mir-87 microRNA precursor family: a 74-nucleotide RNA from Heliconius melpomene. The sequence is in the family's curated seed alignment. Pairs were carried over by alignment from the consensus structure, which was predicted with RNAalifold. Rfam links the family to the GO terms miRNA-mediated post-transcriptional gene silencing and RISC complex. On this family, see Sempere et al., Dev Biol 2003: "Temporal regulation of microRNA expression in Drosophila melanogaster mediated by hormonal signals and broad-Complex gene activity". The organism belongs to Heliconius, within Eukaryota.
[Rfam]
RNA sequence: CACUGAUGGGCCUGAACUGUUGCUCUUACCUGUUCUUUUAUACUAGGUGAGCAAACUUUCAGGUGUGUUAGUGC
Number, nucleotide and partner (000 for none) at each position: 001c000002a072003c071004u070005g069006a068007u067008g000009g000010g064011c063012c062013u061014g060015a059016a000017c000018u000019g000020u054021u053022g000023c051024u050025c049026u000027u000028a000029c047030c046031u045032g000033u000034u000035c000036u000037u000038u000039u000040a000041u000042a000043c000044u000045a031046g030047g029048u000049g025050a024051g023052c000053a021054a020055a000056c000057u000058u000059u015060c014061a013062g012063g011064u010065g000066u000067g007068u006069u005070a004071g003072u002073g000074c000